[Rfam]
Nucleotides: 138
Stems, first nucleotide, its partner, number of pairs: 013126003018121003022117004027112007036103003
Number, partner (000 for none) and nucleotide at each position: 001000a002000g003000u004000a005000a006000a007000g008000u009000c010000g011000c012000u013126g014125g015124a016000g017000g018121c019120a020119g021000c022117g023116g024115u025114u026000c027112a028111u029110c030109g031108a032107u033106c034000a035000a036103u037102u038101c039000c040000u041000g042000g043000g044000a045000a046000c047000u048000c049000u050000c051000u052000u053000u054000u055000u056000u057000u058000a059000a060000a061000u062000g063000u064000u065000u066000c067000g068000a069000u070000g071000g072000u073000u074000u075000u076000g077000g078000a079000a080000u081000a082000u083000a084000a085000u086000u087000u088000a089000c090000a091000u092000c093000g094000a095000a096000a097000g098000c099000a100000c101038g102037a103036a104000u105000c106033g107032a108031u109030c110029g111028a112027u113000a114025a115024a116023c117022c118000u119020c120019u121018g122000c123000a124015u125014c126013c127000a128000g129000c130000g131000c132000u133000u134000g135000c136000u137000c138000c
This 138-nucleotide sequence from Capsella rubella belongs to the Rfam family "MIR162_1 microRNA precursor family". Taxonomically the source falls in Capsella (Eukaryota, Embryophyta, Gunneridae, Pentapetalae). The literature on the family includes a 2002 paper in Genes Dev by Reinhart et al., "MicroRNAs in plants". It scores 96 bits against the family's covariance model. Pairs were carried over by alignment from the consensus structure, which was predicted with RNAalifold. Rfam links the family to the GO terms miRNA-mediated post-transcriptional gene silencing and RISC complex.